[Rfam]
RNA sequence: GGCAGUGUGGGUUCCUGGCAUCGUGAUUUGAAGCAAAAAAGGAAUCAAAAAUCACAUUGCCAGGGAUUUCCACACAGCC
Numbered sequence: 001g002g003c004a005g006u007g008u009g010g011g012u013u014c015c016u017g018g019c020a021u022c023g024u025g026a027u028u029u030g031a032a033g034c035a036a037a038a039a040a041g042g043a044a045u046c047a048a049a050a051a052u053c054a055c056a057u058u059g060c061c062a063g064g065g066a067u068u069u070c071c072a073c074a075c076a077g078c079c
Stems, first nucleotide, its partner, number of pairs: 001079002005075002008072003011067010023055007
About this RNA
The family of this 79-nucleotide RNA sequence from Acipenser ruthenus is "mir-23 microRNA precursor family". The base pairs follow the family's consensus structure, which was predicted with PFOLD. The source organism's lineage runs through Eukaryota, Metazoa, Bilateria, Craniata and Acipenser.